A member of the RNA family "Small nucleolar RNA snoR31/Z110/Z27" from Helianthus annuus, 93 nucleotides long. It scores 53 bits against the family's covariance model. About the family: This family contains several related snoRNAs including R31, Z27 and Z110. The organism belongs to Helianthus, within Eukaryota.

RNA sequence: GUCAUCAAAUGAUUAUAAAUUAAUUUAAUCUUAGGACACCAUUGGACACAACUUAUAGUUGUGGGUGAGAAUACUCUUAUUUAUGAUGAUGAC
Number, nucleotide and partner (000 for none) at each position: 001g093002u092003c091004a090005u089006c088007a087008a000009a000010u000011g000012a000013u000014u000015a000016u000017a000018a000019a000020u000021u000022a000023a000024u000025u000026u000027a000028a000029u000030c000031u000032u000033a000034g000035g000036a000037c000038a000039c000040c000041a000042u000043u000044g000045g049046a000047c000048a000049c045050a000051a000052c000053u000054u000055a000056u000057a000058g000059u000060u000061g000062u000063g000064g000065g000066u000067g000068a000069g000070a000071a000072u000073a000074c000075u000076c000077u000078u000079a000080u000081u000082u000083a000084u000085g000086a000087u007088g006089a005090u004091g003092a002093c001